A member of the RNA family "c-di-AMP riboswitch aptamer (ydaO/yuaA leader)" from Micromonospora sp. ATCC 39149, 141 nucleotides long. A search with the family's covariance model found it, with a score of 87 bits. Lineage of the source: Bacteria > Bacillati > Actinomycetota > Micromonosporaceae > Micromonospora. On this family, see Barrick et al., Proc Natl Acad Sci U S A 2004: "New RNA motifs suggest an expanded scope for riboswitches in bacterial genetic control". The pairing is the family consensus, mapped onto this sequence.
[Rfam]
RNA sequence: GGUACGACACCGCCGAGUCGCCUCCGGGCGAGCCGGGGACCCAGGUACGCCGGGGUGAAUCCGCAGCGGUGCUGCGGUAGGGCGCUCUCCCUUCCCGCCCGAACCCGUCAGCUAACCCGGUAGGCGGUAGCGGAAGAAGGA
Numbered sequence: 001g002g003u004a005c006g007a008c009a010c011c012g013c014c015g016a017g018u019c020g021c022c023u024c025c026g027g028g029c030g031a032g033c034c035g036g037g038g039a040c041c042c043a044g045g046u047a048c049g050c051c052g053g054g055g056u057g058a059a060u061c062c063g064c065a066g067c068g069g070u071g072c073u074g075c076g077g078u079a080g081g082g083c084g085c086u087c088u089c090c091c092u093u094c095c096c097g098c099c100c101g102a103a104c105c106c107g108u109c110a111g112c113u114a115a116c117c118c119g120g121u122a123g124g125c126g127g128u129a130g131c132g133g134a135a136g137a138a139g140g141a
Stems, first nucleotide, its partner, number of pairs: 011126004018031003032121006042052001053106003061077004080100004